Shown here is a 128-nucleotide sequence from Brevibacillus centrosporus, a member of the family "FMN riboswitch aptamer (RFN element)".
RNA sequence: AGCAAUCUUCAGGGUAGGGUGUAAUUCCCGACCGGCGGUAAAGCCCGCGACUCGCUGACUUCUAUGAAAGCGACUGAUCUGGUGAAAAUCCAGAGCCGACGGUACAGUCCGGAUGGGAGAAGAUGCGA
Numbered sequence: 001a002g003c004a005a006u007c008u009u010c011a012g013g014g015u016a017g018g019g020u021g022u023a024a025u026u027c028c029c030g031a032c033c034g035g036c037g038g039u040a041a042a043g044c045c046c047g048c049g050a051c052u053c054g055c056u057g058a059c060u061u062c063u064a065u066g067a068a069a070g071c072g073a074c075u076g077a078u079c080u081g082g083u084g085a086a087a088a089u090c091c092a093g094a095g096c097c098g099a100c101g102g103u104a105c106a107g108u109c110c111g112g113a114u115g116g117g118a119g120a121a122g123a124u125g126c127g128a
Base pairs, nucleotide, nucleotide: 005124006123007122008121009120010119017029018028019027031108032107033098034097035048036047037046038045043096044095052073053072078094079093080092081091082090100111101110102109
The match comes from Rfam's covariance-model search (119 bits). The base pairs follow the family's consensus structure, which is taken from published work.